[Rfam]
RNA sequence: ACACAGGGAAGGAGGUGGUCUGCGAAAUUGAUAGCUUCUAGGACAUGUGAGGUGGCUGCCAGCUAGCAGCACCAGGUGCGGUGGAUUCACCUGCGUCCUGCGCGCGCUGGCGAAUUCCCGGCAGCUACCCGGCCCCCGAGCUCUGGUUUGUCCAACCAGGUGAACGGCUCGGGGGCCGCCCCAU
Numbered sequence: 001a002c003a004c005a006g007g008g009a010a011g012g013a014g015g016u017g018g019u020c021u022g023c024g025a026a027a028u029u030g031a032u033a034g035c036u037u038c039u040a041g042g043a044c045a046u047g048u049g050a051g052g053u054g055g056c057u058g059c060c061a062g063c064u065a066g067c068a069g070c071a072c073c074a075g076g077u078g079c080g081g082u083g084g085a086u087u088c089a090c091c092u093g094c095g096u097c098c099u100g101c102g103c104g105c106g107c108u109g110g111c112g113a114a115u116u117c118c119c120g121g122c123a124g125c126u127a128c129c130c131g132g133c134c135c136c137c138g139a140g141c142u143c144u145g146g147u148u149u150g151u152c153c154a155a156c157c158a159g160g161u162g163a164a165c166g167g168c169u170c171g172g173g174g175g176c177c178g179c180c181c182c183a184u
Base pairs, nucleotide, nucleotide: 014060015059016058017057018056019055062111063110064109065108066107067106069105070104072102074099075098076097130178131177132176133175134174135173136172137171138170139169140168141167142166144158145157146156147155
Rfam assigns this 184-nucleotide sequence from Mycolicibacterium rhodesiae to the family "Actinobacteria sRNA Ms_IGR-5". It is annotated as a small RNA. The organism belongs to Mycolicibacterium rhodesiae, within Bacteria.